Group II catalytic intron D1-D4-5: a 203-nucleotide RNA from Candidatus Epulonipiscioides saccharophilum. Pairs were carried over by alignment from the consensus structure. A search with the family's covariance model found it, with a score of 115 bits. The literature on the family includes a 2001 paper in Trends Genet by Bonen and Vogel, "The ins and outs of group II introns". Group II introns are found in rRNA, tRNA and mRNA of organelles in fungi, plants and protists, and also in mRNA in bacteria.

[Rfam]
RNA sequence: AAGAAUUCUUUAGAAGAAAGAUCGAAUGAAGAGAGUAACGGCUCGUAAAGGUCUUCCCUAAAACUGCGAAUAGCAAAGAUGGAUUAAGCCAAAAAUUGUUAUAAAGCUCGCAUAAGUCGGCUAAGAGGUAGCCCUAAGAAAAUAGGAUACAGGAAAAGUGAACCAGAGGUGGUCAAGUUGCUGAUAGGCCGGGGGGCUAAAAA
Numbered sequence: 001a002a003g004a005a006u007u008c009u010u011u012a013g014a015a016g017a018a019a020g021a022u023c024g025a026a027u028g029a030a031g032a033g034a035g036u037a038a039c040g041g042c043u044c045g046u047a048a049a050g051g052u053c054u055u056c057c058c059u060a061a062a063a064c065u066g067c068g069a070a071u072a073g074c075a076a077a078g079a080u081g082g083a084u085u086a087a088g089c090c091a092a093a094a095a096u097u098g099u100u101a102u103a104a105a106g107c108u109c110g111c112a113u114a115a116g117u118c119g120g121c122u123a124a125g126a127g128g129u130a131g132c133c134c135u136a137a138g139a140a141a142a143u144a145g146g147a148u149a150c151a152g153g154a155a156a157a158g159u160g161a162a163c164c165a166g167a168g169g170u171g172g173u174c175a176a177g178u179u180g181c182u183g184a185u186a187g188g189c190c191g192g193g194g195g196g197c198u199a200a201a202a203a
Stems, first nucleotide, its partner, number of pairs: 018055006033044003056195004066111004070102007080092001082090001118191005127182006133153003140148001159175002162173004